Record summary:
The record is a 185-nucleotide RNA from Isoptericola dokdonensis, which matches "c-di-AMP riboswitch aptamer (ydaO/yuaA leader)" in Rfam. The organism belongs to Isoptericola dokdonensis, within Bacteria.
RNA sequence: ACCGGACGCCGAGUCCUGCCACCGGUCGGGGAGACGGAACCCAUGGCAGGAGCGGGGGACCCAAUUCUGGGCAUCGGAGACGGUGUCCUCGGGGUGAAGCCGGUCAGGGCGCGAGCCCUGGACGGCCGGGUGAUUUCUCCCACCCGAACCCGACAGCUGACCUCGUAGGCGACGGGAGAGGAAAA
Numbered sequence: 001a002c003c004g005g006a007c008g009c010c011g012a013g014u015c016c017u018g019c020c021a022c023c024g025g026u027c028g029g030g031g032a033g034a035c036g037g038a039a040c041c042c043a044u045g046g047c048a049g050g051a052g053c054g055g056g057g058g059a060c061c062c063a064a065u066u067c068u069g070g071g072c073a074u075c076g077g078a079g080a081c082g083g084u085g086u087c088c089u090c091g092g093g094g095u096g097a098a099g100c101c102g103g104u105c106a107g108g109g110c111g112c113g114a115g116c117c118c119u120g121g122a123c124g125g126c127c128g129g130g131u132g133a134u135u136u137c138u139c140c141c142a143c144c145c146g147a148a149c150c151c152g153a154c155a156g157c158u159g160a161c162c163u164c165g166u167a168g169g170c171g172a173c174g175g176g177a178g179a180g181g182a183a184a185a
Base pairs, nucleotide, nucleotide: 007171008170009169010168014051015050016049017048018047019046020045021044052166053165054164055163056162057161062091092151093150094149100125101124102123128145129144130143131142